[Rfam]
The record is a 248-nucleotide RNA sequence, which matches "Pseudomonas sRNA P24" in Rfam. Pairs were carried over by alignment from the consensus structure, which was predicted with RNAalifold. It is annotated as a non-coding RNA gene.
RNA sequence: UUGCGCAAAUAACCUAUCGAUCAGCAAUAUUCGCAAUCCUGUGCCGCCUGCCGCCCGUUAAGCUUUCCCUCAGUUUCAUGGCCCGGACGUUAUGUCCAUCCGCAACGCCCAAUCAGGUGUCGCGGCGCCGGCGGUCCUACCGGAUCGUGCAGGCUCCCGGGUCCGCACCGCCCAACCAGGCGGGCGAAGAAGGCGGCGACACGAUUGCCAGCGUCGGACAAGAAAAAGGGGAGGCUUCGGCCUCCCCU
Numbered sequence: 001u002u003g004c005g006c007a008a009a010u011a012a013c014c015u016a017u018c019g020a021u022c023a024g025c026a027a028u029a030u031u032c033g034c035a036a037u038c039c040u041g042u043g044c045c046g047c048c049u050g051c052c053g054c055c056c057g058u059u060a061a062g063c064u065u066u067c068c069c070u071c072a073g074u075u076u077c078a079u080g081g082c083c084c085g086g087a088c089g090u091u092a093u094g095u096c097c098a099u100c101c102g103c104a105a106c107g108c109c110c111a112a113u114c115a116g117g118u119g120u121c122g123c124g125g126c127g128c129c130g131g132c133g134g135u136c137c138u139a140c141c142g143g144a145u146c147g148u149g150c151a152g153g154c155u156c157c158c159g160g161g162u163c164c165g166c167a168c169c170g171c172c173c174a175a176c177c178a179g180g181c182g183g184g185c186g187a188a189g190a191a192g193g194c195g196g197c198g199a200c201a202c203g204a205u206u207g208c209c210a211g212c213g214u215c216g217g218a219c220a221a222g223a224a225a226a227a228g229g230g231g232a233g234g235c236u237u238c239g240g241c242c243u244c245c246c247c248u
Stems, first nucleotide, its partner, number of pairs: 001012003043055001045053002076191001079189001081162004085097004100125004107118003127154003133146005164186003168183005193212001195209005227248004232243004
Dot-bracket structure: (((......)))..............................(.((.....)).)....................(..(.((((((((.....))))..((((...(((......)))...)))).(((...(((((....))))).....)))....)))).(((.(((((......))))))))..).).(.(((((.....)))))..)..............((((.((((....)))).))))